[Rfam]
RNA: c-di-GMP-I-GGC riboswitch aptamer
Nucleotides: 073
Stems, first nucleotide, its partner, number of pairs: 003070002011035002016031004021026001033059001038066003043062003046057003
Number, partner (000 for none) and nucleotide at each position: 001000c002000a003070a004069g005000a006000u007000a008000a009000a010000g011035c012034c013000a014000a015000a016031c017030c018029u019028g020000c021026c022000g023000u024000g025000a026021g027000a028019c029018a030017g031016g032000g033059c034012g035011g036000g037000a038066a039065g040064c041000a042000a043062c044061g045060g046057g047056u048055c049000u050000c051000a052000a053000u054000a055048g056047a057046u058000a059033g060045c061044c062043g063000a064040g065039u066038u067000g068000c069004c070003u071000c072000u073000u